[Rfam]
RNA sequence: GGCCAUCGACAGGGGCGUCCGUUCAAUCGGACUGAGAAGCACCCUUUGAACCUGAACCAGAUCAUGCUGGCGGAGGGAGUCGCGGACAUCCGAGG
Number, nucleotide and partner (000 for none) at each position: 001g000002g000003c000004c000005a000006u000007c082008g081009a080010c079011a045012g044013g043014g042015g000016c039017g032018u031019c030020c029021g028022u000023u000024c000025a000026a000027u000028c021029g020030g019031a018032c017033u000034g000035a000036g000037a000038a000039g016040c000041a000042c014043c013044c012045u011046u000047u000048g000049a000050a000051c076052c075053u074054g000055a000056a000057c070058c069059a068060g067061a000062u000063c000064a000065u000066g000067c060068u059069g058070g057071c000072g000073g000074a053075g052076g051077g000078a000079g010080u009081c008082g007083c000084g000085g000086a000087c000088a000089u000090c000091c000092g000093a000094g000095g000

The record is a 95-nucleotide RNA sequence from Aliiruegeria haliotis, which matches "TPP riboswitch aptamer (THI element)" in Rfam. The family's consensus secondary structure is taken from published work. It scores 68 bits against the family's covariance model.